[Rfam]
RNA sequence: UACACACUUCCUUAGAUCCGCCUUUGGGACAAAGUCAUGGAUGCCUGAAGUGACAAUGUCCAGCAACUUUAUUGUUGUACCAUCGAAGGUGCUUGAGUCAUUGGUGUGUGAUAUCAGUAUACCUCAGACUGCAGACUUGGGACUGUUGCAGAUCUAACUUGAUCAUUAUUGCAACAGUUGGCUGUUUUCUGGGACACC
Number, nucleotide and partner (000 for none) at each position: 001u000002a109003c108004a107005c106006a105007c104008u103009u000010c000011c097012u096013u095014a094015g093016a000017u000018c000019c091020g090021c089022c088023u087024u086025u085026g084027g061028g060029a059030c058031a057032a000033a000034g054035u053036c052037a051038u000039g000040g000041a000042u000043g000044c000045c000046u000047g000048a000049a000050g000051u037052g036053a035054c034055a000056a000057u031058g030059u029060c028061c027062a000063g078064c077065a076066a075067c074068u000069u000070u000071a000072u000073u000074g067075u066076u065077g064078u063079a000080c000081c000082a000083u000084c026085g025086a024087a023088g022089g021090u020091g019092c000093u015094u014095g013096a012097g011098u000099c000100a000101u000102u000103g008104g007105u006106g005107u004108g003109u002110g000111a000112u000113a000114u000115c000116a000117g000118u000119a000120u000121a000122c000123c193124u192125c191126a190127g189128a000129c000130u000131g185132c000133a183134g182135a000136c180137u000138u000139g000140g000141g000142a000143c177144u176145g175146u174147u173148g172149c171150a000151g000152a163153u162154c161155u000156a000157a000158c000159u000160u000161g154162a153163u152164c000165a000166u000167u000168a000169u000170u000171g149172c148173a147174a146175c145176a144177g143178u000179u000180g136181g000182c134183u133184g000185u131186u000187u000188u000189c127190u126191g125192g124193g123194a000195c000196a000197c000198c000
Overview:
The family of this 198-nucleotide RNA sequence from Mytilus coruscus is "Small nucleolar RNA SNORA53". About the family: The snoRNA ACA53 belongs to the H/ACA family of pseudouridylation guide snoRNAs. The organism belongs to Mytilus, within Eukaryota. A search with the family's covariance model found it, with a score of 93 bits. It is annotated as an H/ACA-box small nucleolar RNA.